Annotation
Rfam assigns this 111-nucleotide sequence from Symbiobacterium thermophilum to the family "c-di-GMP-I riboswitch aptamer". NCBI's taxonomy places the organism under Bacteria, Bacillota, Clostridia, Symbiobacteriaceae, Symbiobacterium thermophilum. Its family is annotated with cyclic-di-GMP binding in the Gene Ontology. Rfam describes the family as follows. GEMM was predicted in a large-scale screen for bacterial structured RNA regulatory elements. The sequence is in the family's curated seed alignment.
[Rfam]
Nucleotides: 111
Stems, first nucleotide, its partner, number of pairs: 012037002017032004022027001040105004045101003048096003055090003
Number, partner (000 for none) and nucleotide at each position: 001000c002000a003000g004000c005000g006000a007000u008000a009000a010000a011000g012037g013036c014000a015000c016000a017032c018031c019030c020029g021000c022027c023000g024000a025000a026000a027022g028000a029020c030019g031018g032017g033000g034000c035000c036013g037012c038000a039000a040105a041104g042103c043102c044000a045101c046100g047099g048096g049095g050094c051000u052000a053000c054000a055090g056089g057088a058000a059000g060000c061000g062000g063000g064000c065000g066000c067000c068000g069000c070000c071000c072000u073000g074000c075000c076000g077000g078000g079000u080000c081000u082000c083000c084000c085000g086000c087000c088057u089056c090055c091000c092000a093000u094050g095049c096048u097000a098000g099047c100046c101045g102043g103042g104041c105040u106000g107000c108000c109000g110000c111000u